MIR168 microRNA precursor family: a 131-nucleotide RNA sequence from Mikania micrantha. Gene Ontology terms of the family: miRNA-mediated post-transcriptional gene silencing and RISC complex. The literature on the family includes a 2002 paper in Genes Dev by Reinhart et al., "MicroRNAs in plants". The match comes from Rfam's covariance-model search (80 bits). NCBI's taxonomy places the organism under Eukaryota, Streptophyta, Streptophytina, Magnoliopsida, Mikania.
[Rfam]
RNA sequence: GUUACGGUUGUUUCUGAUUCGCUUGGUGCAGGUCGGGAACGGCAUUGCCGGCGUGCUCCGUUUUGCAUCUCUAUUAUUUCGGUAAACGCUGAUCCCGCCGUGUAUCAAGUGAAUCGGAAAUUGCCGUGAAU
Numbered sequence: 001g002u003u004a005c006g007g008u009u010g011u012u013u014c015u016g017a018u019u020c021g022c023u024u025g026g027u028g029c030a031g032g033u034c035g036g037g038a039a040c041g042g043c044a045u046u047g048c049c050g051g052c053g054u055g056c057u058c059c060g061u062u063u064u065g066c067a068u069c070u071c072u073a074u075u076a077u078u079u080c081g082g083u084a085a086a087c088g089c090u091g092a093u094c095c096c097g098c099c100g101u102g103u104a105u106c107a108a109g110u111g112a113a114u115c116g117g118a119a120a121u122u123g124c125c126g127u128g129a130a131u
Base pairs, nucleotide, nucleotide: 013118014117017114018113019112020111023108024107025106026105027104028103029102030101032099034097035096036095037094038093040091041090042089043088